[Rfam]
RNA sequence: UAUCGCAGCCCUUCUUGGGCGUUUCCUCCCUAGACUUCAGGCCGCCUCGCAAGAGAGCGGCCUUUUUUUUGUCCUGA
Numbered sequence: 001u002a003u004c005g006c007a008g009c010c011c012u013u014c015u016u017g018g019g020c021g022u023u024u025c026c027u028c029c030c031u032a033g034a035c036u037u038c039a040g041g042c043c044g045c046c047u048c049g050c051a052a053g054a055g056a057g058c059g060g061c062c063u064u065u066u067u068u069u070u071g072u073c074c075u076g077a
Base pairs, nucleotide, nucleotide: 008020009019010018011017040062041061042060043059044058045057046055047054048053
The family of this 77-nucleotide RNA from Breoghania corrubedonensis is "Makes More Granules Regulator RNA (mmgR)". The match comes from Rfam's covariance-model search (75 bits). For this family Rfam cites "Evidence for a second class of S-adenosylmethionine riboswitches and other regulatory RNA motifs in alpha-proteobacteria" (Corbino et al., Genome Biol, 2005). Lineage of the source: Bacteria > Pseudomonadati > Pseudomonadota > Alphaproteobacteria > Breoghania. Pairs were carried over by alignment from the consensus structure. The family has 87 seed sequences and 1,791 matches in Rfam 15.1.